[Rfam]
RNA sequence: GCAGACAUUUCACAUCAUUCGCCGGGAUAACGCCAAUGUUGCCUUGAAGUGCCUUACGCAAACAUGCGAAUCCUCGGAAGGUCCAGCUUGCUCCUAGGGAAUCUUGGGUGUCCUAAGAUUCCCCCUCGG
Numbered sequence: 001g002c003a004g005a006c007a008u009u010u011c012a013c014a015u016c017a018u019u020c021g022c023c024g025g026g027a028u029a030a031c032g033c034c035a036a037u038g039u040u041g042c043c044u045u046g047a048a049g050u051g052c053c054u055u056a057c058g059c060a061a062a063c064a065u066g067c068g069a070a071u072c073c074u075c076g077g078a079a080g081g082u083c084c085a086g087c088u089u090g091c092u093c094c095u096a097g098g099g100a101a102u103c104u105u106g107g108g109u110g111u112c113c114u115a116a117g118a119u120u121c122c123c124c125c126u127c128g129g
Stems, first nucleotide, its partner, number of pairs: 006051006016038004020032002093129002096126003099121006106114002
RNA: Hairy RNA localisation element (HLE)